Rfam assigns this 84-nucleotide sequence from Austrofundulus limnaeus to the family "Small nucleolar RNA SNORD11B". A reference for the family is Yang et al. (2006), "snoSeeker: an advanced computational package for screening of guide and orphan snoRNA genes in the human genome", Nucleic Acids Res. The source organism's lineage runs through Eukaryota, Chordata, Euteleosteomorpha, Percomorphaceae and Austrofundulus. The family's RNA type in Rfam is C/D-box small nucleolar RNA. Gene Ontology terms of the family: nucleolus and RNA processing. A search with the family's covariance model found it, with a score of 67 bits. The family's consensus secondary structure was predicted with WAR.

RNA sequence: UGUCUGUGGUGAUGAUGACGACAGUUGUCUUCCUCCUGAACUGACUCAUGUGGGUUCUCAGUCACUACCUCAUCUGAACGGUCA
Numbered sequence: 001u002g003u004c005u006g007u008g009g010u011g012a013u014g015a016u017g018a019c020g021a022c023a024g025u026u027g028u029c030u031u032c033c034u035c036c037u038g039a040a041c042u043g044a045c046u047c048a049u050g051u052g053g054g055u056u057c058u059c060a061g062u063c064a065c066u067a068c069c070u071c072a073u074c075u076g077a078a079c080g081g082u083c084a
Stems, first nucleotide, its partner, number of pairs: 002083001004081004